terC RNA: a 55-nucleotide RNA sequence from Candidatus Viadribacter manganicus.

RNA sequence: UGGCCAGGCCGGGCCCCUCUGGCAGCGCAAUGCGCUGCGAUGUCGGACUGGAGGA
Numbered sequence: 001u002g003g004c005c006a007g008g009c010c011g012g013g014c015c016c017c018u019c020u021g022g023c024a025g026c027g028c029a030a031u032g033c034g035c036u037g038c039g040a041u042g043u044c045g046g047a048c049u050g051g052a053g054g055a
Base pairs, nucleotide, nucleotide: 006049007048009046010045011044012043022038023037024036025035026034027033028032